[Rfam]
RNA: mir-7386 microRNA precursor family
RNA sequence: AUUUGGACAAGGUGCUCUGUUUUGUGGAUUCUCCCAAAAAGAGCAUCUUGUCCAUAGAG
Number, nucleotide and partner (000 for none) at each position: 001a000002u056003u000004u054005g053006g052007a051008c050009a049010a048011g047012g046013u000014g000015c000016u000017c000018u041019g000020u039021u038022u037023u036024g035025u000026g034027g000028a000029u000030u000031c000032u000033c000034c026035c024036a023037a022038a021039a020040a000041g018042a000043g000044c000045a000046u012047c011048u010049u009050g008051u007052c006053c005054a004055u000056a002057g000058a000059g000